[Rfam]
RNA: Small nucleolar RNA SNORA73 family
RNA sequence: CUAAUGUGGAUACUCCCAGGAGGUCACUCUCCCUGGGCUCUGUCCAGGUGGUGAACAGAAGCUUAGGGCUCUGCCCCAUGACAUACAGUCCCUUUCCACAAUGUUGGAGAUGAAGCCAGGCCUUGAGUCUGUGCCUGCAUAUUCCUACAGCUUCUCAGAGUCCUGUGGACAAUGACUGAGGAGACAAACCAUGCAGGAAACAGCU
Numbered sequence: 001c002u003a004a005u006g007u008g009g010a011u012a013c014u015c016c017c018a019g020g021a022g023g024u025c026a027c028u029c030u031c032c033c034u035g036g037g038c039u040c041u042g043u044c045c046a047g048g049u050g051g052u053g054a055a056c057a058g059a060a061g062c063u064u065a066g067g068g069c070u071c072u073g074c075c076c077c078a079u080g081a082c083a084u085a086c087a088g089u090c091c092c093u094u095u096c097c098a099c100a101a102u103g104u105u106g107g108a109g110a111u112g113a114a115g116c117c118a119g120g121c122c123u124u125g126a127g128u129c130u131g132u133g134c135c136u137g138c139a140u141a142u143u144c145c146u147a148c149a150g151c152u153u154c155u156c157a158g159a160g161u162c163c164u165g166u167g168g169a170c171a172a173u174g175a176c177u178g179a180g181g182a183g184a185c186a187a188a189c190c191a192u193g194c195a196g197g198a199a200a201c202a203g204c205u
Stems, first nucleotide, its partner, number of pairs: 001107007008045005015037003019030004048099004058091001060089001061086001064083001066079001134197007151183006160170004